[Rfam]
RNA sequence: AGCAGAGUAGAGCACAAUGCGUUAAGUGCCGCUGAAACGGGGAGUUGUUCGGCGGACGAAAGGGAGCCUUUUCCUUGCGGUAUUGUGGUCGCAUCCCGCUGCU
Numbered sequence: 001a002g003c004a005g006a007g008u009a010g011a012g013c014a015c016a017a018u019g020c021g022u023u024a025a026g027u028g029c030c031g032c033u034g035a036a037a038c039g040g041g042g043a044g045u046u047g048u049u050c051g052g053c054g055g056a057c058g059a060a061a062g063g064g065a066g067c068c069u070u071u072u073c074c075u076u077g078c079g080g081u082a083u084u085g086u087g088g089u090c091g092c093a094u095c096c097c098g099c100u101g102c103u
Base pairs, nucleotide, nucleotide: 001103002102003101004100005099010090011089013087014086015085016084017083018082019081020079021078022077026057027056029055030054031053032052033051034050035049036048040096041095042094044092061076062075063074064073

Shown here is a 103-nucleotide RNA from Butyricicoccus sp. TM10-16AC, a member of the family "THF (Tetrahydrofolate) riboswitch aptamer". Rfam describes the family as follows. Tetrahydrofolate (THF) riboswitch was first reported for Ames et al. as an RNA motif in 5' untranslated (5'-UTR)regions of folate transport and biosynthesis genes in Firmicutes genomes.